[Rfam]
RNA: epsC RNA
Organism: Caldibacillus debilis
Nucleotides: 121
Stems, first nucleotide, its partner, number of pairs: 001019004007034007035104004039099008049073005054067005076088004107121005
Number, partner (000 for none) and nucleotide at each position: 001019a002018g003017g004016u005000g006000a007034u008033g009032u010031c011030u012029c013028c014000u015000u016004a017003c018002c019001u020000u021000u022000a023000u024000c025000a026000a027000c028013g029012g030011a031010g032009g033008c034007a035104c036103u037102c038101g039099g040098c041097c042096a043095u044094g045093c046092u047000g048000u049073g050072g051071g052070c053069g054067g055066c056065a057064g058063a059000g060000g061000g062000a063058u064057c065056u066055g067054c068000c069053u070052g071051c072050c073049u074000u075000a076088g077087a078086c079085g080000c081000u082000c083000g084000u085079c086078g087077u088076c089000g090000a091000u092046a093045g094044u095043g096042u097041g098040g099039c100000g101038u102037g103036a104035g105000g106000g107121c108120g109119g110118g111117u112000u113000c114000g115000a116000u117111g118110c119109c120108c121107g